[Rfam]
Nucleotides: 080
Base pairs, nucleotide, nucleotide: 003078004077006075007074008073009072011070012069013068014067015066016065017064018063020060021059022057023056024055025054026053027052028051031050032049033048
Number, partner (000 for none) and nucleotide at each position: 001000a002000c003078g004077u005000u006075u007074g008073g009072u010000g011070a012069g013068u014067u015066u016065u017064g018063c019000u020060g021059g022057u023056u024055u025054g026053c027052a028051u029000u030000c031050a032049g033048c034000u035000u036000u037000a038000a039000c040000a041000g042000g043000u044000g045000u046000u047000c048033g049032c050031u051028g052027u053026g054025c055024a056023a057022a058000u059021c060020c061000a062000u063018g064017c065016a066015a067014a068013a069012c070011u071000g072009a073008c074007c075006a076000c077004g078003c079000g080000g
Annotation
The record is an 80-nucleotide RNA sequence from Parambassis ranga, which matches "mir-19 microRNA precursor family" in Rfam. Pairs were carried over by alignment from the consensus structure, which was predicted with RNAalifold. For this family Rfam cites "Identification of novel genes coding for small expressed RNAs" (Lagos-Quintana et al., Science, 2001). The source organism's lineage runs through Eukaryota, Eumetazoa, Neoteleostei, Percomorphaceae and Parambassis. The match comes from Rfam's covariance-model search (71 bits).